The record is a 35-nucleotide RNA sequence from Filimonas zeae, which matches "DUF805b RNA" in Rfam. Pairs were carried over by alignment from the consensus structure, which is taken from published work. The family's RNA type in Rfam is cis-regulatory element. The match comes from Rfam's covariance-model search (36 bits).
RNA sequence: AAAGGGUGUUCCGAAAACCUGAAAAAGAGUAGGCU
Numbered sequence: 001a002a003a004g005g006g007u008g009u010u011c012c013g014a015a016a017a018c019c020u021g022a023a024a025a026a027g028a029g030u031a032g033g034c035u
Stems, first nucleotide, its partner, number of pairs: 003020003011033002